The record is a 110-nucleotide RNA from Oryza punctata, which matches "MIR1861 microRNA precursor family" in Rfam. The organism belongs to Oryza, within Eukaryota. A search with the family's covariance model found it, with a score of 110 bits. Its family is annotated with miRNA-mediated post-transcriptional gene silencing and RISC complex in the Gene Ontology.
[Rfam]
RNA sequence: AUAUUCUUAAGCUCGAUCCUGUGGCAGGAACUGGGUAGUUAGUGUACUCGCUCUGUGUUGUUCGUUCACUACCAACACGGUUCCUGCCACAAGAUCGAGUCUGCGAAUAU
Numbered sequence: 001a002u003a004u005u006c007u008u009a010a011g012c013u014c015g016a017u018c019c020u021g022u023g024g025c026a027g028g029a030a031c032u033g034g035g036u037a038g039u040u041a042g043u044g045u046a047c048u049c050g051c052u053c054u055g056u057g058u059u060g061u062u063c064g065u066u067c068a069c070u071a072c073c074a075a076c077a078c079g080g081u082u083c084c085u086g087c088c089a090c091a092a093g094a095u096c097g098a099g100u101c102u103g104c105g106a107a108u109a110u
Base pairs, nucleotide, nucleotide: 001110002109003108004107005106006105008103009102011100012099014097015096016095017094018093020091021090023088024087025086026085027084028083029082030081031080032079033078035076036075